A member of the RNA family "Small nucleolar RNA snoR104" from Thalictrum thalictroides, 117 nucleotides long.
Gene Ontology terms of the family: nucleolus and RNA processing.
It is annotated as an H/ACA-box small nucleolar RNA.
NCBI's taxonomy places the organism under Eukaryota, Streptophyta, Magnoliopsida, Mesangiospermae, Thalictrum.
For this family Rfam cites "Experimental RNomics: identification of 140 candidates for small non-messenger RNAs in the plant Arabidopsis thaliana" (Marker et al., Curr Biol, 2002).

RNA sequence: AAGGAACAUCCUAGAGCGAGAUGUUACCUGAUACAAUCUUCCUACAAAAAUUUCUGUAAUUUCCUGCUGGUAGUUCUGCAGACUAGUUCUACAAGUCUCAAAUUACCGUACAUUUGA
Dot-bracket structure: (.(.((((((.........)))))).).).......................(.(..........(((.((((..((.......))..)))).)))...........).).......

Pairs were carried over by alignment from the consensus structure, which was predicted with WAR. A search with the family's covariance model found it, with a score of 81 bits.